Shown here is an 81-nucleotide RNA from Methylomonas denitrificans, a member of the family "c-di-GMP-I-GGC riboswitch aptamer". It scores 63 bits against the family's covariance model.

[Rfam]
RNA sequence: GCAAGAAUUGCCACACCCGUCGAGAGGCGGGGCCGGAAAGCCACGGUUCUUAAAAAUAACAAGAAAGCCGGGUUGCUAGAU
Numbered sequence: 001g002c003a004a005g006a007a008u009u010g011c012c013a014c015a016c017c018c019g020u021c022g023a024g025a026g027g028c029g030g031g032g033c034c035g036g037a038a039a040g041c042c043a044c045g046g047u048u049c050u051u052a053a054a055a056a057u058a059a060c061a062a063g064a065a066a067g068c069c070g071g072g073u074u075g076c077u078a079g080a081u
Base pairs, nucleotide, nucleotide: 001081004077011036012035016031017030018029019028020027021026034067039074040073041072042071044070045069046068047065048064049063050062051061
Its family is annotated with cyclic-di-GMP binding in the Gene Ontology.